[Rfam]
RNA sequence: CUCUGCUUAUGAUGAGUUGCAAUAUCUUUUGCCUACAUUGUCUGACAAAUGUUGUCAUGAUAAUAUUUGCAACCUCUGAGGCAUAA
Numbered sequence: 001c002u003c004u005g006c007u008u009a010u011g012a013u014g015a016g017u018u019g020c021a022a023u024a025u026c027u028u029u030u031g032c033c034u035a036c037a038u039u040g041u042c043u044g045a046c047a048a049a050u051g052u053u054g055u056c057a058u059g060a061u062a063a064u065a066u067u068u069g070c071a072a073c074c075u076c077u078g079a080g081g082c083a084u085a086a
Stems, first nucleotide, its partner, number of pairs: 002085001004083004
A member of the RNA family "Small nucleolar RNA SNORD34", 86 nucleotides long. On this family, see Galardi et al., Mol Cell Biol 2002: "Purified box C/D snoRNPs are able to reproduce site-specific 2'-O-methylation of target RNA in vitro". snoRNA U34 is found in intron 5 of the ribosomal protein L13a gene in humans. Rfam's curators put it in the seed alignment.